Rfam assigns this 62-nucleotide RNA sequence to the family "Glutamine-II riboswitch aptamer".
[Rfam]
RNA sequence: AAGCGUUCAACUUGCAUAUAGCAAGCUGCAAAUCGACUUAAGCCAUGGAACGGGGACUUAAG
Numbered sequence: 001a002a003g004c005g006u007u008c009a010a011c012u013u014g015c016a017u018a019u020a021g022c023a024a025g026c027u028g029c030a031a032a033u034c035g036a037c038u039u040a041a042g043c044c045a046u047g048g049a050a051c052g053g054g055g056a057c058u059u060a061a062g
Base pairs, nucleotide, nucleotide: 004052005051006050007049008048011025012024013023014022037062038061039060040059041058042057043055044054
About this RNA:
Its family is annotated with glutamine binding in the Gene Ontology.